[Rfam]
RNA: UnaL2 LINE 3' element
Organism: Hemibagrus wyckioides
RNA sequence: AAUGAGAUAAAUUAUAAGUUGCUCUGGAUAAGAGCAUCUGUCAAAUGGCAGAAA
Numbered sequence: 001a002a003u004g005a006g007a008u009a010a011a012u013u014a015u016a017a018g019u020u021g022c023u024c025u026g027g028a029u030a031a032g033a034g035c036a037u038c039u040g041u042c043a044a045a046u047g048g049c050a051g052a053a054a
Stems, first nucleotide, its partner, number of pairs: 013043001014041003020036006